VR-RNA: a 397-nucleotide sequence from Clostridium perfringens. By type it is a small RNA. The family's consensus secondary structure was predicted with mfold.
[Rfam]
RNA sequence: GUAAUAUUUCUUAAGUAAAUAUUUAUUUUUAUUAAGCAAGGGGUGAUUUUUUUGAAACAUACAAAAAGGAUUUUAACAAGUGCAAUUUUAAUUACAUUAAUAACUCUUUUUUCUCCCUUAAUACUUAAAAAUAGCAUAGCUUUAUAUAUUGAACAAAGAGUAUCUUAUUUUACAUCUUUAGAAGUUGUUUCAAAUAUUAUAAGUCCCAUACUUGCUUUAAUAUCAAUAUUUUCAAUUGCAUAUUCCAUAAUUGUAAUUAAAAAUAAAUAAUUACUUAUUAAUGAUUUUACUUUAAUUUAGUAAAAAACCUUACAUAAAAUUACCACCAUAACUAUUGAUCCUAGAAAUAGAACUGUCCACUCUAUUUUUAGGAUUUUUAUUUUUUUCUUCUUUAUGU
Number, nucleotide and partner (000 for none) at each position: 001g000002u000003a000004a000005u283006a282007u281008u280009u000010c000011u000012u277013a276014a275015g274016u273017a272018a271019a000020u269021a268022u267023u266024u265025a264026u263027u262028u261029u260030u259031a258032u000033u000034a217035a216036g215037c214038a213039a212040g211041g207042g206043g205044u000045g000046a200047u199048u000049u000050u000051u194052u193053u192054g191055a190056a189057a188058c187059a186060u000061a000062c000063a000064a000065a000066a179067a178068g177069g176070a175071u174072u000073u000074u000075a000076a000077c000078a000079a098080g097081u096082g095083c000084a093085a092086u091087u000088u000089u000090a000091a086092u085093u084094a000095c082096a081097u080098u079099a000100a000101u000102a000103a161104c160105u159106c158107u157108u156109u155110u000111u153112u152113c151114u000115c000116c000117c000118u000119u144120a143121a142122u000123a000124c139125u138126u000127a000128a000129a000130a000131a000132u000133a000134g000135c000136a000137u000138a125139g124140c000141u000142u121143u120144a119145u000146a000147u000148a000149u000150u000151g113152a112153a111154c000155a109156a108157a107158g106159a105160g104161u103162a000163u000164c000165u000166u000167a000168u000169u000170u000171u000172a000173c000174a071175u070176c069177u068178u067179u066180a000181g000182a000183a000184g000185u000186u059187g058188u057189u056190u055191c054192a053193a052194a051195u000196a000197u000198u000199a047200u046201a000202a000203g000204u000205c043206c042207c041208a000209u000210a000211c040212u039213u038214g037215c036216u035217u034218u000219a000220a000221u000222a000223u000224c000225a000226a000227u000228a000229u000230u000231u000232u000233c000234a000235a257236u256237u255238g254239c253240a252241u000242a000243u000244u000245c000246c000247a000248u000249a000250a000251u000252u240253g239254u238255a237256a236257u235258u031259a030260a029261a028262a027263a026264u025265a024266a023267a022268u021269a020270a000271u018272u017273a016274c015275u014276u013277a012278u000279u000280a008281a007282u006283g005284a000285u305286u304287u303288u302289a301290c300291u299292u000293u000294a000295a000296u000297u000298u000299a291300g290301u289302a288303a287304a286305a285306a000307a000308c000309c000310u000311u000312a397313c396314a395315u394316a393317a392318a391319a000320u000321u000322a000323c000324c000325a000326c000327c000328a000329u000330a382331a381332c000333u379334a378335u000336u000337g375338a374339u373340c372341c371342u370343a369344g368345a367346a366347a365348u364349a363350g362351a361352a000353c000354u000355g000356u000357c000358c000359a000360c000361u351362c350363u349364a348365u347366u346367u345368u344369u343370a342371g341372g340373a339374u338375u337376u000377u000378u334379a333380u000381u331382u330383u000384u000385u000386u000387c000388u000389u000390c000391u318392u317393u316394a315395u314396g313397u312